[Rfam]
The record is a 134-nucleotide sequence from Drosophila mojavensis, which matches "Small nucleolar RNA psi28S-3316" in Rfam. Rfam describes the family as follows. psi28S-3316 is a member of the H/ACA class of snoRNA. This family is responsible for guiding the modification of uridine 3316 in Drosophila 28S rRNA to pseudouridine. Rfam classes the family as an H/ACA-box small nucleolar RNA.

RNA sequence: GGCACCUAAAAGCGUUUUCUUGAUUGCUUUUUAAACGCGCCUGAAAAUCGUAGCUGUGUGCCAGAGCAAUUGCUGCGGUUGCAAGUGAAUUGAUGUCAAUUAGUGCAACAAUUCCAUUUACACCACGCACAUGU
Dot-bracket structure: ((((((.....((((((((..(...............)....))))).)))....).)))))...........((.(((...(((((((((..(((........)))..)))).)))))..))).)).......
Numbered sequence: 001g002g003c004a005c006c007u008a009a010a011a012g013c014g015u016u017u018u019c020u021u022g023a024u025u026g027c028u029u030u031u032u033a034a035a036c037g038c039g040c041c042u043g044a045a046a047a048u049c050g051u052a053g054c055u056g057u058g059u060g061c062c063a064g065a066g067c068a069a070u071u072g073c074u075g076c077g078g079u080u081g082c083a084a085g086u087g088a089a090u091u092g093a094u095g096u097c098a099a100u101u102a103g104u105g106c107a108a109c110a111a112u113u114c115c116a117u118u119u120a121c122a123c124c125a126c127g128c129a130c131a132u133g134u
Stems, first nucleotide, its partner, number of pairs: 001062005006056001012051003015047005022038001074127002077124003083119005088113004094107003